[Rfam]
RNA sequence: AGGCCUGGAAUGAUGAUCCAGAUUCAUGUCUCUUCUCUGAGAUUUCCUCUGGAGAAAAUCCUGUUUUUUAUCUGAUCGGGCCU
Numbered sequence: 001a002g003g004c005c006u007g008g009a010a011u012g013a014u015g016a017u018c019c020a021g022a023u024u025c026a027u028g029u030c031u032c033u034u035c036u037c038u039g040a041g042a043u044u045u046c047c048u049c050u051g052g053a054g055a056a057a058a059u060c061c062u063g064u065u066u067u068u069u070a071u072c073u074g075a076u077c078g079g080g081c082c083u
Stems, first nucleotide, its partner, number of pairs: 001083005
RNA: Small nucleolar RNA SNORD111
Organism: Ornithorhynchus anatinus